[Rfam]
The record is a 210-nucleotide sequence from Anoxybacillus flavithermus, which matches "HNH endonuclease-associated RNA and ORF (HEARO) RNA" in Rfam. The match comes from Rfam's covariance-model search (164 bits). Rfam classes the family as a non-coding RNA gene. The family's consensus secondary structure is taken from published work. For this family Rfam cites "Exceptional structured noncoding RNAs revealed by bacterial metagenome analysis" (Weinberg et al., Nature, 2009).

RNA sequence: GUCAACAACCCAAUGACUAAAGUCAUGGGCUUGUAAGCCCCAUGUUGACCAGACCAAGGCUUGAAACAGAGCCUACGUUAUAGAUGUCAUGACACGUUCGGGUGCUUCUCCAGCCCGUUCCUCUGUCGUGCAAGGUUAAACAAGCGUGGUGGGUAGCGCUAGUGUCUUGCACAUAACAAGCAUCUAUAACAUGGUCGAGGAGAAUAUAAC
Numbered sequence: 001g002u003c004a005a006c007a008a009c010c011c012a013a014u015g016a017c018u019a020a021a022g023u024c025a026u027g028g029g030c031u032u033g034u035a036a037g038c039c040c041c042a043u044g045u046u047g048a049c050c051a052g053a054c055c056a057a058g059g060c061u062u063g064a065a066a067c068a069g070a071g072c073c074u075a076c077g078u079u080a081u082a083g084a085u086g087u088c089a090u091g092a093c094a095c096g097u098u099c100g101g102g103u104g105c106u107u108c109u110c111c112a113g114c115c116c117g118u119u120c121c122u123c124u125g126u127c128g129u130g131c132a133a134g135g136u137u138a139a140a141c142a143a144g145c146g147u148g149g150u151g152g153g154u155a156g157c158g159c160u161a162g163u164g165u166c167u168u169g170c171a172c173a174u175a176a177c178a179a180g181c182a183u184c185u186a187u188a189a190c191a192u193g194g195u196c197g198a199g200g201a202g203a204a205u206a207u208a209a210c
Stems, first nucleotide, its partner, number of pairs: 001049007010029002013026002016023002030037002052196005057074005077190011092126002096120001099117005106204006128172009140163002143160005149154001